RNA: Group II catalytic intron D1-D4-6
Organism: Paenibacillus sp. 598K
RNA sequence: GGAACCCUGCUUGGAAAGGUGCUAGCCACACCACCAAUAACGAGUCUUGGAGCGAACAUGGUAACAGGUUCGUUUAAGCGUAGACAGAUAGGGAGUAGGCCUGAAUGUGAUGGAGCCUCGAAAUACAUGAAACGGGAGCGGUCGACAGUGUCGAAAAACUGGAAGACAACACGACUCUGAGCGAUACAAGGCGAGUUCAGAGAAGCAUCCCCGGGGUCGAAGAGCC
Numbered sequence: 001g002g003a004a005c006c007c008u009g010c011u012u013g014g015a016a017a018g019g020u021g022c023u024a025g026c027c028a029c030a031c032c033a034c035c036a037a038u039a040a041c042g043a044g045u046c047u048u049g050g051a052g053c054g055a056a057c058a059u060g061g062u063a064a065c066a067g068g069u070u071c072g073u074u075u076a077a078g079c080g081u082a083g084a085c086a087g088a089u090a091g092g093g094a095g096u097a098g099g100c101c102u103g104a105a106u107g108u109g110a111u112g113g114a115g116c117c118u119c120g121a122a123a124u125a126c127a128u129g130a131a132a133c134g135g136g137a138g139c140g141g142u143c144g145a146c147a148g149u150g151u152c153g154a155a156a157a158a159c160u161g162g163a164a165g166a167c168a169a170c171a172c173g174a175c176u177c178u179g180a181g182c183g184a185u186a187c188a189a190g191g192c193g194a195g196u197u198c199a200g201a202g203a204a205g206c207a208u209c210c211c212c213g214g215g216g217u218c219g220a221a222g223a224g225c226c
Base pairs, nucleotide, nucleotide: 011037012036013035014034018032019031021029023194025192026191041087044085045084046083047082048080049079050075051074052073053072054071055070056069057068059066060065113218115217116216117215118214119213120212134211135210136209137208140206141167142166143165146161147160148159149158172205175202176201177200178199179198180197181196182195